c-di-AMP riboswitch aptamer (ydaO/yuaA leader): a 172-nucleotide RNA sequence from Streptomyces carminius. Rfam's curators write: This family represents a conserved RNA structure found upstream of the ydaO and yuaA genes in Bacillus subtilis and related genes in other bacteria. A search with the family's covariance model found it, with a score of 44 bits.

[Rfam]
RNA sequence: UCCACACCACCGCCGGCAGGAGCGGGGGACCCAACGAAAACCGCCGGCCCGUGCCCAUACGGGACGGCUUGGGGUGAAGCCACGCCUCGCGGCCCAGCGCCGCGCAACGGCUGGCCGGGCAACUCCAGCCCGAACCCGACAGCUCACCUCGCAGGCGUAGGAGAAGGAGCCA
Numbered sequence: 001u002c003c004a005c006a007c008c009a010c011c012g013c014c015g016g017c018a019g020g021a022g023c024g025g026g027g028g029a030c031c032c033a034a035c036g037a038a039a040a041c042c043g044c045c046g047g048c049c050c051g052u053g054c055c056c057a058u059a060c061g062g063g064a065c066g067g068c069u070u071g072g073g074g075u076g077a078a079g080c081c082a083c084g085c086c087u088c089g090c091g092g093c094c095c096a097g098c099g100c101c102g103c104g105c106a107a108c109g110g111c112u113g114g115c116c117g118g119g120c121a122a123c124u125c126c127a128g129c130c131c132g133a134a135c136c137c138g139a140c141a142g143c144u145c146a147c148c149u150c151g152c153a154g155g156c157g158u159a160g161g162a163g164a165a166g167g168a169g170c171c172a
Base pairs, nucleotide, nucleotide: 001021002020003019022152023151024150025149026148027147032071033070072137073136074135080114081113082112117131118130119129120128